Rfam assigns this 100-nucleotide sequence from Cryobacterium roopkundense to the family "mraW RNA". The match comes from Rfam's covariance-model search (58 bits).

[Rfam]
RNA sequence: UCUAGCCCCUGGCGCCUGACUCCCAGCCGUUCAUGCCCUGACACACUUCCCCGGUGCCAGGAAAGAAUGGAUGGGGAUCAGGCAUCAGGGACCAGCCCGG
Dot-bracket structure: .........(((.(((.((.(((((.((((((.(..((((.(((.........))).)))).).)))))).))))).)).))).))).............